[Rfam]
RNA sequence: CAGGUGGCCCUGAUGGGUGCCUGGGCCGGAUAAACCGGCGAUAUCAUAUGCUUGUACCCAUAUUGCUCAAUGGAGGAUGUGGCUAUGAGAA
Numbered sequence: 001c002a003g004g005u006g007g008c009c010c011u012g013a014u015g016g017g018u019g020c021c022u023g024g025g026c027c028g029g030a031u032a033a034a035c036c037g038g039c040g041a042u043a044u045c046a047u048a049u050g051c052u053u054g055u056a057c058c059c060a061u062a063u064u065g066c067u068c069a070a071u072g073g074a075g076g077a078u079g080u081g082g083c084u085a086u087g088a089g090a091a
Stems, first nucleotide, its partner, number of pairs: 001023006008017002051089006058082007066075003
Dot-bracket structure: ((((((.((......))))))))...........................((((((.(((((((.(((....)))))))))).))))))..
A member of the RNA family "Repression of heat shock gene expression (ROSE) element" from Paracoccus yeei, 91 nucleotides long. Rfam links the family to the GO terms regulation of translation and response to temperature stimulus. By type it is an RNA thermoregulator. On this family, see Nocker et al., Nucleic Acids Res 2001: "A mRNA-based thermosensor controls expression of rhizobial heat shock genes".